[Rfam]
RNA sequence: GAACUUGAGAGUUUGAUCCUGGCUCAGAGCAAACGCUGGCGGCAUGCCUAACACAUGCAAGUCGAACGAACCUUUAUGGUUAGUGGCGGACGGGUGAGUAACGCGUAGGAAUCUAUCUGUAGAUGAGGGAUAACCUUGGGAAACCGAGGCUAAUACCUCAUAAUGCCUGAGGGCUAAAGACGUAAGUUGUCUACAGCAGAGCCUGCGUUUGAUUAGCUUGUUGGUGAGGUAAAGGCUCACCAAGGCUUUGAUCAAUAGCUGGUUUAAGAGGAUGAUCAGCCACACUGGGACUGAGACACGGCCCAGACUCCUACGGGAGGCAGCAGUGGGGAAUAUUGGACAAUGGGCGAAAGCCUGAUCCAGCAAUGCCGCGUGUGUGAAGAAGGUCUUCGGAUUGUAAAGCACUUUCGUUGGGGACGAUGAUGACGGUACCCAAAGAAGAAGCCCCGGCUAACUUCGUGCCAGCAGCCGCGGUAAUACGAAGGGGGCAAGCGUUGCUCGGAAUGACUG
Numbered sequence: 001g002a003a004c005u006u007g008a009g010a011g012u013u014u015g016a017u018c019c020u021g022g023c024u025c026a027g028a029g030c031a032a033a034c035g036c037u038g039g040c041g042g043c044a045u046g047c048c049u050a051a052c053a054c055a056u057g058c059a060a061g062u063c064g065a066a067c068g069a070a071c072c073u074u075u076a077u078g079g080u081u082a083g084u085g086g087c088g089g090a091c092g093g094g095u096g097a098g099u100a101a102c103g104c105g106u107a108g109g110a111a112u113c114u115a116u117c118u119g120u121a122g123a124u125g126a127g128g129g130a131u132a133a134c135c136u137u138g139g140g141a142a143a144c145c146g147a148g149g150c151u152a153a154u155a156c157c158u159c160a161u162a163a164u165g166c167c168u169g170a171g172g173g174c175u176a177a178a179g180a181c182g183u184a185a186g187u188u189g190u191c192u193a194c195a196g197c198a199g200a201g202c203c204u205g206c207g208u209u210u211g212a213u214u215a216g217c218u219u220g221u222u223g224g225u226g227a228g229g230u231a232a233a234g235g236c237u238c239a240c241c242a243a244g245g246c247u248u249u250g251a252u253c254a255a256u257a258g259c260u261g262g263u264u265u266a267a268g269a270g271g272a273u274g275a276u277c278a279g280c281c282a283c284a285c286u287g288g289g290a291c292u293g294a295g296a297c298a299c300g301g302c303c304c305a306g307a308c309u310c311c312u313a314c315g316g317g318a319g320g321c322a323g324c325a326g327u328g329g330g331g332a333a334u335a336u337u338g339g340a341c342a343a344u345g346g347g348c349g350a351a352a353g354c355c356u357g358a359u360c361c362a363g364c365a366a367u368g369c370c371g372c373g374u375g376u377g378u379g380a381a382g383a384a385g386g387u388c389u390u391c392g393g394a395u396u397g398u399a400a401a402g403c404a405c406u407u408u409c410g411u412u413g414g415g416g417a418c419g420a421u422g423a424u425g426a427c428g429g430u431a432c433c434c435a436a437a438g439a440a441g442a443a444g445c446c447c448c449g450g451c452u453a454a455c456u457u458c459g460u461g462c463c464a465g466c467a468g469c470c471g472c473g474g475u476a477a478u479a480c481g482a483a484g485g486g487g488g489c490a491a492g493c494g495u496u497g498c499u500c501g502g503a504a505u506g507a508c509u510g
Stems, first nucleotide, its partner, number of pairs: 009025005027500004032496006039372006045365002047330001052328003056325003061087003066084002069081002072079002094283003103208007112200002117196007125159004134149006165174003179188003209255003216246003221243008258280004262273004285306005308319004336362001338361003344357005375405004385396004409441001411436005419427001444489005455484005465472002
Dot-bracket structure: ........(((((.......))))).((((.((((((.(((((((((....(((.(((..(((..((.((.((....)))).)))))......(((......(((((((..((...(((((((.((((.....((((((....))))))......)))).....(((....)))....(((....))).)))))))..)).)))))))(((....(((..((((((((.......)))))))))))......)))..((((((((....))))...))))))).(((((............))))).((((....))))...)))))).).....(.(((...(((((....))))).)))).)).))))))..((((......((((....)))).....))))...(.(((((...(.......)....)))))....)..(((((......(((((.....((....)).......)))))))))).))))))))))..........
Annotation: A member of the RNA family "Bacterial small subunit ribosomal RNA" from Formicincola oecophyllae, 510 nucleotides of a longer RNA. It scores 1570 bits against the family's covariance model. Its Rfam clan is "SSU clan". The family's consensus secondary structure is taken from published work. NCBI's taxonomy places the organism under Bacteria, Pseudomonadati, Alphaproteobacteria, Acetobacterales, Formicincola.